A member of the RNA family "Glycine riboswitch aptamer" from Nocardioides marmoriginsengisoli, 113 nucleotides long.

RNA sequence: CAAUCCCGCAUGGGAGAGCCUUCGGCGGUGACCACCUGGUGGGCACCGAGCCGGAGCGCCGAAGGGGCAAUUCCUCCCCGGAACCUCUCAGGCGCAAGGACCAUGCGGAUCAG
Numbered sequence: 001c002a003a004u005c006c007c008g009c010a011u012g013g014g015a016g017a018g019c020c021u022u023c024g025g026c027g028g029u030g031a032c033c034a035c036c037u038g039g040u041g042g043g044c045a046c047c048g049a050g051c052c053g054g055a056g057c058g059c060c061g062a063a064g065g066g067g068c069a070a071u072u073c074c075u076c077c078c079c080g081g082a083a084c085c086u087c088u089c090a091g092g093c094g095c096a097a098g099g100a101c102c103a104u105g106c107g108g109a110u111c112a113g
Base pairs, nucleotide, nucleotide: 006108007107008106009105010104011103012102013101020056021055022054023053024052025051026050058093059092060091061089062088065087066086067085071081072080